[Rfam]
RNA: GlmZ RNA activator of glmS mRNA
RNA sequence: GUAGAUGCUCAUUCACCUCCUUAUGUUUGCGAAAGCUUCAUAAACCUCCGAAUGAUGCAGAGCCAAUUUACGGUGUCUAUUGUCCGAUUCUGAUGAUAGUGGUCUUGACCCUUCAUCAAGCUACGGGCGUAACGUUGAGUGAGACACCAAUCAGUUGUCCUAAGAUCUGAUUGUCCUUUUAGACACUUGCCUUUUGGCAGGUGUUUUUUU
Numbered sequence: 001g002u003a004g005a006u007g008c009u010c011a012u013u014c015a016c017c018u019c020c021u022u023a024u025g026u027u028u029g030c031g032a033a034a035g036c037u038u039c040a041u042a043a044a045c046c047u048c049c050g051a052a053u054g055a056u057g058c059a060g061a062g063c064c065a066a067u068u069u070a071c072g073g074u075g076u077c078u079a080u081u082g083u084c085c086g087a088u089u090c091u092g093a094u095g096a097u098a099g100u101g102g103u104c105u106u107g108a109c110c111c112u113u114c115a116u117c118a119a120g121c122u123a124c125g126g127g128c129g130u131a132a133c134g135u136u137g138a139g140u141g142a143g144a145c146a147c148c149a150a151u152c153a154g155u156u157g158u159c160c161u162a163a164g165a166u167c168u169g170a171u172u173g174u175c176c177u178u179u180u181a182g183a184c185a186c187u188u189g190c191c192u193u194u195u196g197g198c199a200g201g202u203g204u205u206u207u208u209u210u
Stems, first nucleotide, its partner, number of pairs: 001063002006059003009055006018042001027035001072148007082128005092117004157166003182205010